L31-Actinobacteria ribosomal protein leader: a 44-nucleotide sequence. The base pairs follow the family's consensus structure, which is taken from published work. Clan: Ribosomal Protein L31 Leader clan.

Nucleotides: 044
Base pairs, nucleotide, nucleotide: 003044004043006042008040009039010038011037016034017033018032019031020030021029022028
Number, partner (000 for none) and nucleotide at each position: 001000c002000c003044g004043g005000c006042c007000u008040c009039c010038g011037g012000u013000u014000c015000a016034c017033c018032c019031g020030c021029g022028c023000u024000g025000c026000g027000c028022g029021c030020g031019c032018g033017g034016g035000a036000c037011c038010c039009g040008g041000c042006g043004c044003c